Description: This 134-nucleotide RNA sequence from Xenopus laevis belongs to the Rfam family "Small nucleolar RNA SNORA70". About the family: snoRNA U70 seems to be exclusive to mammals and is a member of the H/ACA class of snoRNA which contain H (ANANNA) and ACA box motifs. H/ACA box snoRNAs are involved in the conversion of uridines to pseudouridines (5-ribosyluracil) a constituent of structural RNAs (transfer, ribosomal, small nuclear, and small nucleolar). NCBI's taxonomy places the organism under Eukaryota, Metazoa, Bilateria, Craniata, Xenopus. A search with the family's covariance model found it, with a score of 113 bits. Rfam classes the family as an H/ACA-box small nucleolar RNA.
[Rfam]
RNA sequence: CUGCAGUCAAUUAAGCCGACCAGGUUUUGUUUCCAUCAGAGCGUGGCGUGCAAUGGCUGCGCACAGUGACUCCCUUGGUUGUGUAUGUGCUUUGCUCUCUGUACAAAGUGCUCUAAGGGACCUUGGGGACACCC
Numbered sequence: 001c002u003g004c005a006g007u008c009a010a011u012u013a014a015g016c017c018g019a020c021c022a023g024g025u026u027u028u029g030u031u032u033c034c035a036u037c038a039g040a041g042c043g044u045g046g047c048g049u050g051c052a053a054u055g056g057c058u059g060c061g062c063a064c065a066g067u068g069a070c071u072c073c074c075u076u077g078g079u080u081g082u083g084u085a086u087g088u089g090c091u092u093u094g095c096u097c098u099c100u101g102u103a104c105a106a107a108g109u110g111c112u113c114u115a116a117g118g119g120a121c122c123u124u125g126g127g128g129a130c131a132c133c134c
Base pairs, nucleotide, nucleotide: 002052003051004050005049020046021045022044025041026040027039028038077122078121079120088110089109090108091107092106093105